[Rfam]
RNA sequence: UAUUAAGUUUUCUAGGGUUCCGCAGCUUCGUCUGGUCUGGUCCGAGGGAAAACUCGCAGCUUCACCGCUGUGUCACGGAAGGAUAAAAUCCUGGGAGAA
Numbered sequence: 001u002a003u004u005a006a007g008u009u010u011u012c013u014a015g016g017g018u019u020c021c022g023c024a025g026c027u028u029c030g031u032c033u034g035g036u037c038u039g040g041u042c043c044g045a046g047g048g049a050a051a052a053c054u055c056g057c058a059g060c061u062u063c064a065c066c067g068c069u070g071u072g073u074c075a076c077g078g079a080a081g082g083a084u085a086a087a088a089u090c091c092u093g094g095g096a097g098a099a
Stems, first nucleotide, its partner, number of pairs: 007053006015043002020040002022037001023034003055072006074094001076097001080092003